[Rfam]
Background
Rfam assigns this 504-nucleotide RNA from Actinomadura macrotermitis to the family "Saccharopolyspora sRNA 350".
RNA sequence: UUGUAGGUGUGCGCCCAUACCGGUUCGUCCUGGUGCAGGGCCUGUUCGCCCAGGUGCGUGCCGUCCGCGACCACGCCGAGGGUCUGCGGGUCGCCGUACUCGCCCGUCCCGAUCCGCUCGACCUUGCCGUGCGCGAUGACGAGCACCUCGGUCACCGGCGCGCCGGCCGCGGCCAGCACCUCGCCGGGCUGCACGUGGCGGGGGGUGAAGCGGCGGGCCAGCCCGGCGAGCACCGCCGCGUCGCCGUACCCGCGCAGCGGGGGGAGUUCGACGAGCGUCUCGGGGAUGAUCCGGACGUCGUCGGCGCCCGCCUGGACGACCCCGACCCGGCCGCUGCCCACGGCGAGCCUGAGCCGCCGGUUCACCCGGUAGGUGCCGCCGGGGACCUCGACCCAGGGCAGCCUGCGCAGCAGCCACCGCGGGGUGAUGCCCUGCAUCUGCGGCACGGUCUUGGUGGUGGUGGCCAGGUUCCGUGCCGCGCGGGUGCUGAGACUGAGCCUUUCG
Dot-bracket structure: .....(((..(...((...(.((.(((((......(.((((.....((((.(.((.(.(((((.(.(.......(.((((.(.(.((.....)).)).))))).....).)......(.(.((...(..(((.(...(.(..((....((....((((((.(..(((....)))..)....))))))..))...))).)...).))..)..)...)).).)..))))).).))..((..((((.(...((((.(.(((...(......).....)).)).))))).))))..))......).))))...)))).)..))...))).)).).((((......))))........(((.(((..((((.....))))))).)))))...)..)))(((((((.(.(.(((.(.......))))..).).))))))).....((((.((((.((((((.......))))))..)))).)))).......(.(((......)..)).)